RNA sequence: GGAGCAGCAACGAUGUUACGCAGCAGGGCAGUCGCCCUAAAACAAAGUUAUGCCGCACUCACCCCCAUG
Numbered sequence: 001g002g003a004g005c006a007g008c009a010a011c012g013a014u015g016u017u018a019c020g021c022a023g024c025a026g027g028g029c030a031g032u033c034g035c036c037c038u039a040a041a042a043c044a045a046a047g048u049u050a051u052g053c054c055g056c057a058c059u060c061a062c063c064c065c066c067a068u069g
Stems, first nucleotide, its partner, number of pairs: 004066001006017001008015002020056002023053002026037004038050003
The family of this 69-nucleotide RNA sequence from Pseudomonas sp. MRSN 12121 is "putative aminoglycoside riboswitch / attI site". Rfam's curators write: Conserved RNA structure found upstream of the bacterial aminoglycosides antibiotic-resistant genes: aminoglycoside acetyl transferase (AAC) and aminoglycoside adenyl transferase (AAD). The match comes from Rfam's covariance-model search (80 bits). Gene Ontology terms of the family: aminoglycoside antibiotic metabolic process and regulation of gene expression. A reference for the family is Jia et al. (2013), "Riboswitch control of aminoglycoside antibiotic resistance", Cell.